[Rfam]
RNA sequence: GCCGAGCCCGGAGCGCGGGCUUGUGACCCAAGCGGGGGUUUUAAGGUGAUGGGACGUUGCUCCAGCCUAGAUGGUCGGAUUCGAUGUGACUAAUUUCUGGCUCGCCCGUUCCAAGCUGGGAGUUGAACCAUGGGUCCCCGGCGAAGGCUUGGGUCUCCUUAUUCUUAGAGCGGAGGGUAACGCGUGAACUACCUCUCGCUCCUGGCAGUGGAAGGACAACAGGCCGGCGUCACUCGAGUCCACACGGCUAGAUGGGCUGUGCCAAUUGGACCAUUAUUUUU
Numbered sequence: 001g002c003c004g005a006g007c008c009c010g011g012a013g014c015g016c017g018g019g020c021u022u023g024u025g026a027c028c029c030a031a032g033c034g035g036g037g038g039u040u041u042u043a044a045g046g047u048g049a050u051g052g053g054a055c056g057u058u059g060c061u062c063c064a065g066c067c068u069a070g071a072u073g074g075u076c077g078g079a080u081u082c083g084a085u086g087u088g089a090c091u092a093a094u095u096u097c098u099g100g101c102u103c104g105c106c107c108g109u110u111c112c113a114a115g116c117u118g119g120g121a122g123u124u125g126a127a128c129c130a131u132g133g134g135u136c137c138c139c140g141g142c143g144a145a146g147g148c149u150u151g152g153g154u155c156u157c158c159u160u161a162u163u164c165u166u167a168g169a170g171c172g173g174a175g176g177g178u179a180a181c182g183c184g185u186g187a188a189c190u191a192c193c194u195c196u197c198g199c200u201c202c203u204g205g206c207a208g209u210g211g212a213a214g215g216a217c218a219a220c221a222g223g224c225c226g227g228c229g230u231c232a233c234u235c236g237a238g239u240c241c242a243c244a245c246g247g248c249u250a251g252a253u254g255g256g257c258u259g260u261g262c263c264a265a266u267u268g269g270a271c272c273a274u275u276a277u278u279u280u281u
Stems, first nucleotide, its partner, number of pairs: 001039003004022007027036003043280010055268002057265003060261001062259001067255003072250005077241008086233004091229001097227006104220001106215002109213005115206009125164003130159001132157003136153003140149003165170001172196005

Plant signal recognition particle RNA: a 281-nucleotide RNA sequence from Hevea brasiliensis. The family's RNA type in Rfam is non-coding RNA gene. Taxonomically the source falls in Hevea (Eukaryota, Tracheophyta, Euphorbiaceae, Crotonoideae). On this family, see Wild et al., Curr Opin Struct Biol 2002: "Towards the structure of the mammalian signal recognition particle".